Source information
The record is a 172-nucleotide sequence from Oryza meridionalis, which matches "MIR807 microRNA precursor family" in Rfam. The literature on the family includes a 2006 paper in FEBS Lett by Luo et al., "Rice embryogenic calli express a unique set of microRNAs, suggesting regulatory roles of microRNAs in plant post-embryogenic development". Pairs were carried over by alignment from the consensus structure, which was predicted with WAR.
RNA sequence: AACCACACUAUCGAUGGAUUCACCCGUGAGAUGACAUGGUUGUUCCAUCUAAGAUGAGAACGUGACAUCCUAUUAAUUUUGUGCGAUGGCUGGUAAUAUGAUGCCAUGUCUUCGUUCUGGGUGAAACAGUCACGUCAUCUCGCGGGUGAAUCCAUUCAUUGAUAGUGUGGUU
Numbered sequence: 001a002a003c004c005a006c007a008c009u010a011u012c013g014a015u016g017g018a019u020u021c022a023c024c025c026g027u028g029a030g031a032u033g034a035c036a037u038g039g040u041u042g043u044u045c046c047a048u049c050u051a052a053g054a055u056g057a058g059a060a061c062g063u064g065a066c067a068u069c070c071u072a073u074u075a076a077u078u079u080u081g082u083g084c085g086a087u088g089g090c091u092g093g094u095a096a097u098a099u100g101a102u103g104c105c106a107u108g109u110c111u112u113c114g115u116u117c118u119g120g121g122u123g124a125a126a127c128a129g130u131c132a133c134g135u136c137a138u139c140u141c142g143c144g145g146g147u148g149a150a151u152c153c154a155u156u157c158a159u160u161g162a163u164a165g166u167g168u169g170g171u172u
Stems, first nucleotide, its partner, number of pairs: 001172007009164007017152008026143004031138005037132008047122002050119002053116002060109002066103004071098005
Dot-bracket structure: (((((((.(((((((.((((((((.((((.(((((.((((((((..((.((.((.....((....((((.(((((..................))))).))))....)).....)).)).))..)))))))).))))).)))).)))))))).....))))))).)))))))
The match comes from Rfam's covariance-model search (136 bits).